[Rfam]
RNA sequence: UUUGGGAAAUGAUGCGAAACAAUUCGAUUGUGUGUCAGAUGCUCAGUAAUCUGUUGCUUUGCUGAACGAUUUUUUGCACGUCAGUCUGAUCCCAAA
Numbered sequence: 001u002u003u004g005g006g007a008a009a010u011g012a013u014g015c016g017a018a019a020c021a022a023u024u025c026g027a028u029u030g031u032g033u034g035u036c037a038g039a040u041g042c043u044c045a046g047u048a049a050u051c052u053g054u055u056g057c058u059u060u061g062c063u064g065a066a067c068g069a070u071u072u073u074u075u076g077c078a079c080g081u082c083a084g085u086c087u088g089a090u091c092c093c094a095a096a
Stems, first nucleotide, its partner, number of pairs: 001096007
Rfam assigns this 96-nucleotide RNA from Dorcoceras hygrometricum to the family "Small nucleolar RNA Z122". A search with the family's covariance model found it, with a score of 57 bits. The source organism's lineage runs through Eukaryota, Streptophytina, Mesangiospermae, Trichosporeae and Dorcoceras.